[Rfam]
Small nucleolar RNA SNORD101: a 75-nucleotide sequence from Octodon degus. Its Rfam clan is "SNORD101 clan". Lineage of the source: Eukaryota > Bilateria > Euarchontoglires > Glires > Octodon. It scores 75 bits against the family's covariance model.

Nucleotides: 075
Stems, first nucleotide, its partner, number of pairs: 002074004
Number, partner (000 for none) and nucleotide at each position: 001000a002074u003073u004072u005071g006000a007000a008000u009000g010000a011000u012000g013000a014000c015000u016000c017000a018000a019000a020000g021000u022000u023000g024000u025000c026000g027000g028000a029000u030000a031000c032000a033000c034000c035000u036000u037000c038000a039000c040000u041000c042000c043000u044000c045000u046000c047000a048000u049000g050000a051000a052000u053000g054000a055000a056000a057000c058000a059000c060000g061000a062000a063000c064000a065000a066000u067000c068000u069000g070000a071005c072004a073003a074002a075000c